[Rfam]
RNA sequence: GUCAGUAUGGCCGAGUGGUUAAGGCGCCAGAUUUGAAAUCUGUUACGAGUAAUCGUGCGUAGGUUCAAAUCCUGCUGCUGACG
Numbered sequence: 001g002u003c004a005g006u007a008u009g010g011c012c013g014a015g016u017g018g019u020u021a022a023g024g025c026g027c028c029a030g031a032u033u034u035g036a037a038a039u040c041u042g043u044u045a046c047g048a049g050u051a052a053u054c055g056u057g058c059g060u061a062g063g064u065u066c067a068a069a070u071c072c073u074g075c076u077g078c079u080g081a082c083g
Stems, first nucleotide, its partner, number of pairs: 001082007010025003028042004059075005
Dot-bracket structure: (((((((..(((..........)))..((((.......))))................(((((.......)))))))))))).
Shown here is an 83-nucleotide RNA from Tubulinosema ratisbonensis, a member of the family "tRNA". Pairs were carried over by alignment from the consensus structure, which is taken from published work. The match comes from Rfam's covariance-model search (58 bits). Taxonomically the source falls in Tubulinosema (Eukaryota, Fungi, Microsporidia, Tubulinosematidae).